Record summary: A member of the RNA family "Selenocysteine insertion sequence 3" from Geobacter pickeringii, 59 nucleotides long. On this family, see Huttenhofer et al., RNA 1996: "Solution structure of mRNA hairpins promoting selenocysteine incorporation in Escherichia coli and their base-specific interaction with special elongation factor SELB". Rfam links the family to the GO term selenocysteine incorporation. The family's consensus secondary structure was predicted with CMfinder. A search with the family's covariance model found it, with a score of 82 bits. Taxonomically the source falls in Geobacter (Bacteria, Thermodesulfobacteriota, Geobacterales, Geobacteraceae).
RNA sequence: GUCUGACACGGCCCCACGGUGGCCAGUUUGGCCCCCACAUUCGGCCGCGGCGCCAUGAC
Dot-bracket structure: ......(.(((((..(.((.(((((...))))))).....).))))).)..........